[Rfam]
RNA: IS605-orfB-I RNA
RNA sequence: UCUGCAUAAAUUUGCAUCUAACCAAGAGAUUCGAGCAAAUCACUUUGUGGAAGUUUAAAUUAGUAACAAUAAUUUGAAAUUGCUAAAGAUUUACAUAUAAAUGAAAUUUCAAAUUAUUUGGAUAACCGUAUGUCCUUUAGUUUUUUAUACUAUAAAAAUAACUUUGUAUAACUUUGCAAAUUACGGUAAA
Numbered sequence: 001u002c003u004g005c006a007u008a009a010a011u012u013u014g015c016a017u018c019u020a021a022c023c024a025a026g027a028g029a030u031u032c033g034a035g036c037a038a039a040u041c042a043c044u045u046u047g048u049g050g051a052a053g054u055u056u057a058a059a060u061u062a063g064u065a066a067c068a069a070u071a072a073u074u075u076g077a078a079a080u081u082g083c084u085a086a087a088g089a090u091u092u093a094c095a096u097a098u099a100a101a102u103g104a105a106a107u108u109u110c111a112a113a114u115u116a117u118u119u120g121g122a123u124a125a126c127c128g129u130a131u132g133u134c135c136u137u138u139a140g141u142u143u144u145u146u147a148u149a150c151u152a153u154a155a156a157a158a159u160a161a162c163u164u165u166g167u168a169u170a171a172c173u174u175u176g177c178a179a180a181u182u183a184c185g186g187u188a189a190a
Stems, first nucleotide, its partner, number of pairs: 001051006008044001010040006017034002020031002022028001068118006075111007089102002092099001120135004125187006131158001138152004163180006